[Rfam]
RNA sequence: UAAUGUAAAAGGCAAACCUCUUGAAAGAGAGGGACGCAAAGCCACCGGCCUGAUUAACAUUCAUUUGUUAAAGGUAGCGGGGUCGCACAA
Numbered sequence: 001u002a003a004u005g006u007a008a009a010a011g012g013c014a015a016a017c018c019u020c021u022u023g024a025a026a027g028a029g030a031g032g033g034a035c036g037c038a039a040a041g042c043c044a045c046c047g048g049c050c051u052g053a054u055u056a057a058c059a060u061u062c063a064u065u066u067g068u069u070a071a072a073g074g075u076a077g078c079g080g081g082g083u084c085g086c087a088c089a090a
Stems, first nucleotide, its partner, number of pairs: 012037002017032006041083003045080003048075003055070004
RNA: c-di-GMP-I riboswitch aptamer